[Rfam]
Rfam assigns this 156-nucleotide RNA sequence from Pluralibacter gergoviae to the family "opuB ncRNA motif". A reference for the family is Narunsky et al. (2024), "The discovery of novel noncoding RNAs in 50 bacterial genomes", Nucleic Acids Res. The source organism's lineage runs through Bacteria, Pseudomonadati, Pseudomonadota, Enterobacteriaceae and Pluralibacter. Pairs were carried over by alignment from the consensus structure, which is taken from published work. opuB ncRNA motif was reported as a strong cis regulatory motif candidate, with potential to be a cis regulatory riboswitch type, it have been identified in mostly from species of Enterobacteriaceae. The motif have been recognised mostly downstream-adjacent gene, opuB, annotated as coding for a proline/glycine ABC-transporter, whereas other related genes are known to be relevant to the transport of compatible solutes such as glycine, betaine, and choline of an uncharacterized ABC transporter with strong homology to amino acid transporters.
RNA sequence: CAAAUUGUCCGCUGCGGUGGAUCCCUCUCCCGACGCUUGCUAUAGCUUUUAACACCCUGCCGGAAUCAGGCAUAACAACAGGCGGUUCUUUUUUUGCAUAACCUUUUGCAUGACCGCUAUAACAAGCAAUGACAGGGAGCACACUGCAAUGCAACC
Numbered sequence: 001c002a003a004a005u006u007g008u009c010c011g012c013u014g015c016g017g018u019g020g021a022u023c024c025c026u027c028u029c030c031c032g033a034c035g036c037u038u039g040c041u042a043u044a045g046c047u048u049u050u051a052a053c054a055c056c057c058u059g060c061c062g063g064a065a066u067c068a069g070g071c072a073u074a075a076c077a078a079c080a081g082g083c084g085g086u087u088c089u090u091u092u093u094u095u096g097c098a099u100a101a102c103c104u105u106u107u108g109c110a111u112g113a114c115c116g117c118u119a120u121a122a123c124a125a126g127c128a129a130u131g132a133c134a135g136g137g138a139g140c141a142c143a144c145u146g147c148a149a150u151g152c153a154a155c156c
Stems, first nucleotide, its partner, number of pairs: 013137001015135001019030003035127002038124002058072004081118006